Nucleotides: 356
Base pairs, nucleotide, nucleotide: 002351003350004349005348006347007346008345009344010343011341012311013310014309015308016307017306018305020039021038022037023036024035025034026033027032044339045338046337048336049335050334051333052332053212054211055210056209060246061245062244063243065208066207067206068205069204070084071083072082073081074080086097087096088095089094099203100202104201105200106197107196108195121143122142123139124138125137126136127135128134151169152168154166155165156164170192171190172189173188174187175186176185177184178183216268217267218266219265226259227258228257229256230255231254238250239249240248241247275294276293277292278291279290280289281288282287
Number, partner (000 for none) and nucleotide at each position: 001000c002351g003350g004349a005348g006347c007346g008345g009344g010343u011341g012311c013310a014309u015308g016307a017306u018305c019000g020039c021038u022037c023036c024035g025034g026033u027032c028000u029000u030000a031000c032027g033026a034025c035024c036023g037022g038021a039020g040000a041000g042000g043000a044339a045338a046337g047000u048336c049335c050334g051333a052332a053212c054211u055210c056209u057000a058000c059000a060246g061245g062244g063243c064000a065208g066207g067206g068205u069204g070084g071083u072082u073081c074080g075000u076000a077000a078000c079000g080074c081073g082072a083071a084070c085000g086097c087096c088095g089094g090000g091000c092000g093000a094089c095088c096087g097086g098000g099203g100202g101000a102000a103000a104201g105200u106197g107196c108195c109000a110000c111000a112000g113000a114000a115000a116000a117000c118000a119000a120000a121143c122142c123139g124138c125137c126136u127135g128134g129000a130000u131000c132000c133000a134128u135127c136126a137125g138124g139123u140000a141000a142122g143121g144000g145000u146000g147000a148000a149000a150000c151169g152168g153000c154166g155165a156164g157000g158000c159000a160000a161000g162000a163000g164156c165155u166154c167000a168152c169151c170192g171190c172189u173188u174187c175186c176185a177184u178183g179000g180000u181000g182000a183178c184177a185176u186175g187174g188173g189172a190171g191000g192170c193000a194000c195108g196107g197106c198000a199000a200105a201104c202100c203099c204069c205068a206067c207066c208065c209056a210055g211054a212053g213000c214000a215000a216268g217267a218266c219265c220000a221000a222000a223000u224000a225000g226259g227258g228257a229256g230255a231254u232000g233000u234000u235000u236000g237000a238250g239249g240248g241247c242000g243063g244062c245061c246060c247241g248240u249239c250238c251000g252000a253000g254231a255230u256229c257228u258227c259226c260000g261000g262000g263000u264000a265219g266218g267217u268216u269000g270000c271000a272000a273000g274000a275294g276293g277292u278291g279290u280289u281288g282287a283000g284000c285000g286000a287282u288281c289280a290279a291278c292277a293276u294275c295000c296000c297000a298000g299000u300000g301000a302000a303000a304000u305018g306017a307016u308015c309014a310013u311012g312000g313000c314000c315000c316000u317000u318000c319000a320000c321000c322000g323000g324000g325000u326000a327000c328000a329000g330000a331000a332052u333051u334050c335049g336048g337046c338045u339044u340000a341011u342000a343010g344009c345008c346007c347006g348005c349004u350003c351002c352000u353000u354000u355000u356000u

This 356-nucleotide RNA belongs to the Rfam family "Bacterial RNase P class A". The family's consensus secondary structure is taken from published work. It scores 308 bits against the family's covariance model. The family's RNA type in Rfam is ribozyme.